[Rfam]
RNA sequence: ACGACCCGCAAGGCCGACGCAUAACGCGCCGCUGGUGCAAGCCCAGCGCCCCGCGCAACGGGGCGGCGCUCAUGGGUAACAA
Dot-bracket structure: ...((((.....(((..(((.....)))..((((.........))))((((((.....)))))))))......)))).....
A member of the RNA family "Twister_sister_ribozyme", 82 nucleotides long. For this family Rfam cites "New classes of self-cleaving ribozymes revealed by comparative genomics analysis" (Weinberg et al., Nat Chem Biol, 2015). The base pairs follow the family's consensus structure, which is taken from published work.